[Rfam]
RNA: Small nucleolar RNA SNORD74
RNA sequence: UGUUUACUUGUAUGAUGAAGAAUAUGUUGGUAGGGACAUCUGAGAAAAUCUGAUGAAUGCCAACAUUUCUGACAUGUAGCA
Number, nucleotide and partner (000 for none) at each position: 001u081002g080003u079004u078005u000006a000007c000008u000009u000010g000011u000012a000013u000014g000015a000016u000017g000018a000019a000020g000021a000022a000023u000024a000025u000026g000027u000028u000029g000030g000031u000032a000033g000034g000035g000036a000037c000038a000039u000040c000041u000042g000043a000044g000045a000046a000047a000048a000049u000050c000051u000052g000053a000054u000055g000056a000057a000058u000059g000060c000061c000062a000063a000064c000065a000066u000067u000068u000069c000070u000071g000072a000073c000074a000075u000076g000077u000078a004079g003080c002081a001